[Rfam]
RNA sequence: CGGGUUAUAUGCCUUUAUUGUCACAUUUUGCUUUUUUCGUUGGGCCAUUGCGAUAAGUACUGAUCUUCCAGCGAAUGAAUUGACAAGCCCGAACCAAGGUUCGGGCUUUUUUUCGUCCUGAC
Numbered sequence: 001c002g003g004g005u006u007a008u009a010u011g012c013c014u015u016u017a018u019u020g021u022c023a024c025a026u027u028u029u030g031c032u033u034u035u036u037u038c039g040u041u042g043g044g045c046c047a048u049u050g051c052g053a054u055a056a057g058u059a060c061u062g063a064u065c066u067u068c069c070a071g072c073g074a075a076u077g078a079a080u081u082g083a084c085a086a087g088c089c090c091g092a093a094c095c096a097a098g099g100u101u102c103g104g105g106c107u108u109u110u111u112u113u114c115g116u117c118c119u120g121a122c
Stems, first nucleotide, its partner, number of pairs: 007021003010017002039072006082110002085108010
RNA: MicC RNA